[Rfam]
RNA sequence: AUUUCGACGGUUCUCCGAGCUUUUUGUCCUAAGUCACCACAGAUACGGACGUUAAGCCGUGGCAAUACGGCCACCGGGGUGAGCAAAGAAAUGAUCUCACCUCCCCUUACUUGGAAAGGUGAUCAUGUCUCAACUAC
Numbered sequence: 001a002u003u004u005c006g007a008c009g010g011u012u013c014u015c016c017g018a019g020c021u022u023u024u025u026g027u028c029c030u031a032a033g034u035c036a037c038c039a040c041a042g043a044u045a046c047g048g049a050c051g052u053u054a055a056g057c058c059g060u061g062g063c064a065a066u067a068c069g070g071c072c073a074c075c076g077g078g079g080u081g082a083g084c085a086a087a088g089a090a091a092u093g094a095u096c097u098c099a100c101c102u103c104c105c106c107u108u109a110c111u112u113g114g115a116a117a118g119g120u121g122a123u124c125a126u127g128u129c130u131c132a133a134c135u136a137c
Stems, first nucleotide, its partner, number of pairs: 006128001012122002015119002019057004025051005033044003059074005077102007087092001103114002
The record is a 137-nucleotide sequence from Shewanella gelidii, which matches "Molybdenum/Tungsten riboswitch aptamer (Moco RNA motif)" in Rfam. Lineage of the source: Bacteria > Pseudomonadati > Gammaproteobacteria > Alteromonadales > Shewanella. A search with the family's covariance model found it, with a score of 91 bits. On this family, see Weinberg et al., Nucleic Acids Res 2007: "Identification of 22 candidate structured RNAs in bacteria using the CMfinder comparative genomics pipeline".